c-di-GMP-II-GAG riboswitch aptamer: an 88-nucleotide RNA from Virgisporangium ochraceum. NCBI's taxonomy places the organism under Bacteria, Actinomycetota, Actinomycetes, Micromonosporales, Virgisporangium. A reference for the family is Weinberg et al. (2017), "Bioinformatic analysis of riboswitch structures uncovers variant classes with altered ligand specificity", Proc Natl Acad Sci U S A. Rfam links the family to the GO terms regulation of gene expression and cyclic-di-GMP binding.

Nucleotides: 088
Base pairs, nucleotide, nucleotide: 001088002087006083008081009080010079011078014061015060022056023055024054025053026052027051028050029049037074038073039070040069041068042067043066
Number, partner (000 for none) and nucleotide at each position: 001088g002087g003000g004000c005000c006083g007000c008081c009080g010079g011078g012000a013000u014061g015060c016000g017000u018000a019000g020000a021000u022056c023055c024054g025053c026052c027051g028050g029049g030000c031000g032000u033000u034000c035000a036000u037074g038073g039070u040069c041068g042067c043066c044000c045000u046000c047000g048000g049029u050028c051027c052026g053025g054024c055023g056022g057000g058000g059000a060015g061014u062000c063000a064000g065000u066043g067042g068041c069040g070039a071000a072000a073038c074037c075000g076000a077000g078011c079010c080009c081008g082000a083006u084000c085000c086000a087002c088001u